[Rfam]
RNA sequence: AAUAGGAGAAUGACAAAUCAAAUUUUUCCUCUUGAUUUUUAGCUUUUUCCUCUUAAAAAAAUUUAAAUUCAAGUAAAAAUGCUAAAAGUUUAAGAGAAAAAUCUGAUUUAUCAUUUUCUCAUU
Numbered sequence: 001a002a003u004a005g006g007a008g009a010a011u012g013a014c015a016a017a018u019c020a021a022a023u024u025u026u027u028c029c030u031c032u033u034g035a036u037u038u039u040u041a042g043c044u045u046u047u048u049c050c051u052c053u054u055a056a057a058a059a060a061a062u063u064u065a066a067a068u069u070c071a072a073g074u075a076a077a078a079a080u081g082c083u084a085a086a087a088g089u090u091u092a093a094g095a096g097a098a099a100a101a102u103c104u105g106a107u108u109u110a111u112c113a114u115u116u117u118c119u120c121a122u123u
Base pairs, nucleotide, nucleotide: 001123002122003121005119006118007117008116009115010114011113012112013111015109016108017107018106019105020104022102024101025100026099027098029096030095031094032093033092034091035090036088037087038086039085041083042082045079046078047077048076
Rfam assigns this 123-nucleotide sequence from Gossypium aridum to the family "MIR7504 microRNA precursor family". Its family is annotated with RISC complex and miRNA-mediated post-transcriptional gene silencing in the Gene Ontology. A search with the family's covariance model found it, with a score of 94 bits. Pairs were carried over by alignment from the consensus structure, which was predicted with RNAalifold.